[Rfam]
RNA sequence: CAGCAACUUUAGGGGUGUCCCGAAUGCGGACUGAGAUAAUACCCUUUGAACCUGAUGCAGCCAGUACUGCCGGUAGGGAAAAGUAAAAGGUACGUU
Numbered sequence: 001c002a003g004c005a006a007c008u009u010u011a012g013g014g015g016u017g018u019c020c021c022g023a024a025u026g027c028g029g030a031c032u033g034a035g036a037u038a039a040u041a042c043c044c045u046u047u048g049a050a051c052c053u054g055a056u057g058c059a060g061c062c063a064g065u066a067c068u069g070c071c072g073g074u075a076g077g078g079a080a081a082a083g084u085a086a087a088a089g090g091u092a093c094g095u096u
Stems, first nucleotide, its partner, number of pairs: 006084005011045004016039001017031004051077004057070004
Shown here is a 96-nucleotide RNA sequence from Dyadobacter sediminis, a member of the family "TPP riboswitch aptamer (THI element)". A search with the family's covariance model found it, with a score of 68 bits. NCBI's taxonomy places the organism under Bacteria, Pseudomonadati, Bacteroidota, Cytophagia, Dyadobacter. About the family: Vitamin B(1) in its active form thiamin pyrophosphate (TPP) is an essential coenzyme that is synthesised by coupling of pyrimidine and thiazole moieties in bacteria. The previously detected thiamin-regulatory element, thi box was extended, resulting in a new, highly conserved RNA secondary structure, the THI element, which is widely distributed in eubacteria and also occurs in some archaea.